[Rfam]
Nucleotides: 171
Stems, first nucleotide, its partner, number of pairs: 004024002026152006036078001079137003087112001089110002115131004
Number, partner (000 for none) and nucleotide at each position: 001000a002000a003000c004024u005023c006000g007000a008000u009000a010000g011000c012000a013000c014000u015000g016000c017000a018000c019000c020000g021000a022000g023005g024004g025000a026152a027151c028150c029149g030148g031147g032000g033000a034000a035000c036078c037000a038000c039000u040000u041000c042000c043000c044000c045000u046000c047000g048000c049000g050000c051000c052000c053000g054000g055000a056000c057000c058000a059000c060000g061000g062000u063000c064000c065000g066000g067000a068000c069000c070000g071000g072000g073000g074000g075000g076000c077000c078036g079137g080136g081135g082000u083000g084000a085000a086000u087112c088000a089110g090109g091000c092000g093000g094000c095000c096000u097000u098000u099000c100000c101000g102000g103000a104000g105000g106000c107000g108000g109090c110089c111000c112087g113000u114000a115131g116130g117129a118128g119000a120000c121000c122000u123000u124000c125000c126000u127000g128118c129117u130116c131115c132000g133000a134000a135081c136080c137079c138000g139000a140000c141000a142000g143000c144000u145000a146000a147031c148030c149029c150028g151027g152026u153000a154000g155000g156000c157000g158000a159000g160000a161000a162000g163000g164000a165000a166000g167000g168000a169000a170000a171000g